[Rfam]
RNA: Plant small nucleolar RNA U3
Organism: Papaver somniferum
RNA sequence: ACGACCUUACUUGAACAGGAUCUGUUCUAUAGGCUCGUACCUCUGUAUCCUUGAGUUCUAAGGAGACAGGAACCUCAGUCUGGUUGAUGAAUCAGAACCGCACGAUCAGAGCGUGAUUAAUGGUUCACAGGCCUAUGAUGUAGGCCCUGUGUCUGUAGAUGAUCGUUCUCAGCUUGGCCUUGGCCUGCUGUGAUGAUCAUGCGGUUGUCUGACAGACU
Numbered sequence: 001a002c003g004a005c006c007u008u009a010c011u012u013g014a015a016c017a018g019g020a021u022c023u024g025u026u027c028u029a030u031a032g033g034c035u036c037g038u039a040c041c042u043c044u045g046u047a048u049c050c051u052u053g054a055g056u057u058c059u060a061a062g063g064a065g066a067c068a069g070g071a072a073c074c075u076c077a078g079u080c081u082g083g084u085u086g087a088u089g090a091a092u093c094a095g096a097a098c099c100g101c102a103c104g105a106u107c108a109g110a111g112c113g114u115g116a117u118u119a120a121u122g123g124u125u126c127a128c129a130g131g132c133c134u135a136u137g138a139u140g141u142a143g144g145c146c147c148u149g150u151g152u153c154u155g156u157a158g159a160u161g162a163u164c165g166u167u168c169u170c171a172g173c174u175u176g177g178c179c180u181u182g183g184c185c186u187g188c189u190g191u192g193a194u195g196a197u198c199a200u201g202c203g204g205u206u207g208u209c210u211g212a213c214a215g216a217c218u
Stems, first nucleotide, its partner, number of pairs: 001038002003035001005033003013027006043069004048064006078217005097205006104198005110167004120156004125151001127150005132144004170190004176185003